[Rfam]
This 76-nucleotide RNA from Ameiurus melas belongs to the Rfam family "mir-7563 microRNA precursor family". Its family is annotated with miRNA-mediated post-transcriptional gene silencing and RISC complex in the Gene Ontology. The source organism's lineage runs through Eukaryota, Eumetazoa, Clupeocephala, Ictaluridae and Ameiurus.

RNA sequence: ACCGCGUACUUACCAUCUGUAUAGUAGCCGAAGUAUAUAUAUUUCGCCUACUAUAUAGUAGGUAAGUACGUGGUUU
Numbered sequence: 001a002c003c004g005c006g007u008a009c010u011u012a013c014c015a016u017c018u019g020u021a022u023a024g025u026a027g028c029c030g031a032a033g034u035a036u037a038u039a040u041a042u043u044u045c046g047c048c049u050a051c052u053a054u055a056u057a058g059u060a061g062g063u064a065a066g067u068a069c070g071u072g073g074u075u076u
Stems, first nucleotide, its partner, number of pairs: 001074014017058011029046003033042003